[Rfam]
RNA sequence: UUAUAGGACGCUUUAGCUAUUGAACUGAUUUGUCCCUCUCUGUCAAAGAACAAAUUGUUCUCUGUCAGAGAGUGACAGAACAGUUCAAUAGCUGAAGUAGCCUAUAAC
Numbered sequence: 001u002u003a004u005a006g007g008a009c010g011c012u013u014u015a016g017c018u019a020u021u022g023a024a025c026u027g028a029u030u031u032g033u034c035c036c037u038c039u040c041u042g043u044c045a046a047a048g049a050a051c052a053a054a055u056u057g058u059u060c061u062c063u064g065u066c067a068g069a070g071a072g073u074g075a076c077a078g079a080a081c082a083g084u085u086c087a088a089u090a091g092c093u094g095a096a097g098u099a100g101c102c103u104a105u106a107a108c
Stems, first nucleotide, its partner, number of pairs: 001107006011097017029069004034064001049059004